[Rfam]
RNA sequence: UGCACGGUUAUGAUGAAGCAUUACGGAUGUAAAACAAGCUUGAAGCUGUUGACCGAGAGCGCAUACAACCGUGUGGAUCUUUCCGUUGCCUUCCUUCUGAGCCGUGC
Numbered sequence: 001u002g003c004a005c006g007g008u009u010a011u012g013a014u015g016a017a018g019c020a021u022u023a024c025g026g027a028u029g030u031a032a033a034a035c036a037a038g039c040u041u042g043a044a045g046c047u048g049u050u051g052a053c054c055g056a057g058a059g060c061g062c063a064u065a066c067a068a069c070c071g072u073g074u075g076g077a078u079c080u081u082u083c084c085g086u087u088g089c090c091u092u093c094c095u096u097c098u099g100a101g102c103c104g105u106g107c
Stems, first nucleotide, its partner, number of pairs: 003106003024085004
This 107-nucleotide RNA from Gloeophyllum trabeum belongs to the Rfam family "Small nucleolar RNA Z13/snr52". Pairs were carried over by alignment from the consensus structure, which was predicted with PFOLD. Taxonomically the source falls in Gloeophyllum trabeum (Eukaryota, Dikarya, Agaricomycotina, Agaricomycetes). Rfam classes the family as a C/D-box small nucleolar RNA. Rfam links the family to the GO terms nucleolus and RNA processing.